[Rfam]
RNA sequence: CUGACGCCCCCGGCUGUGACUCCCAGCCGCUGCCGCCCUGUCGCACUUCCCCGGCGCCAGGUCGAAGCGGAUGGGGAUCAGAGCCGGGGGACCGGCCCCA
Numbered sequence: 001c002u003g004a005c006g007c008c009c010c011c012g013g014c015u016g017u018g019a020c021u022c023c024c025a026g027c028c029g030c031u032g033c034c035g036c037c038c039u040g041u042c043g044c045a046c047u048u049c050c051c052c053g054g055c056g057c058c059a060g061g062u063c064g065a066a067g068c069g070g071a072u073g074g075g076g077a078u079c080a081g082a083g084c085c086g087g088g089g090g091a092c093c094g095g096c097c098c099c100a
Base pairs, nucleotide, nucleotide: 010087011086012085013084014083015082018079019078021076022075023074024073025072027070028069029068030067031066034064035063037061038060039059040058042056043055044054
The record is a 100-nucleotide RNA sequence from Microbacterium sp. ABRD28, which matches "mraW RNA" in Rfam. The source organism's lineage runs through Bacteria, Bacillati, Micrococcales, Microbacteriaceae and Microbacterium. The family has 45 seed sequences and 851 matches in Rfam 15.1.